The family of this 213-nucleotide RNA sequence from Streptomyces sp. SID5789 is "Actinobacteria sRNA Ms_IGR-5".
RNA sequence: ACACCGAAAGGAGGUGAUCCGGCGAAUGUAUGACAACCGGACGCGUGAGGUGGCUGCGGGCUAGCGGCCCGUCACCACAUCUUGUGCGGUGCCGGACCAGCGUGUGCGAGACGCACGCAGCCGGCCAAACCAACGCAGUCACCCGACCCGCGAGUCGCCGGUACGUCCGGCCGGCUCCUCCGCUGGAGGAACCAGACUCGCGGGUCGCCUGCG
Numbered sequence: 001a002c003a004c005c006g007a008a009a010g011g012a013g014g015u016g017a018u019c020c021g022g023c024g025a026a027u028g029u030a031u032g033a034c035a036a037c038c039g040g041a042c043g044c045g046u047g048a049g050g051u052g053g054c055u056g057c058g059g060g061c062u063a064g065c066g067g068c069c070c071g072u073c074a075c076c077a078c079a080u081c082u083u084g085u086g087c088g089g090u091g092c093c094g095g096a097c098c099a100g101c102g103u104g105u106g107c108g109a110g111a112c113g114c115a116c117g118c119a120g121c122c123g124g125c126c127a128a129a130c131c132a133a134c135g136c137a138g139u140c141a142c143c144c145g146a147c148c149c150g151c152g153a154g155u156c157g158c159c160g161g162u163a164c165g166u167c168c169g170g171c172c173g174g175c176u177c178c179u180c181c182g183c184u185g186g187a188g189g190a191a192c193c194a195g196a197c198u199c200g201c202g203g204g205u206c207g208c209c210u211g212c213g
Stems, first nucleotide, its partner, number of pairs: 014057003018053001059126004064121002067118002070113003144207013157175006
A search with the family's covariance model found it, with a score of 87 bits. The family's RNA type in Rfam is small RNA. On this family, see Li et al., RNA 2013: "Identification of small RNAs in Mycobacterium smegmatis using heterologous Hfq". The source organism's lineage runs through Bacteria, Bacillati, Actinomycetota, Actinomycetes and Streptomyces.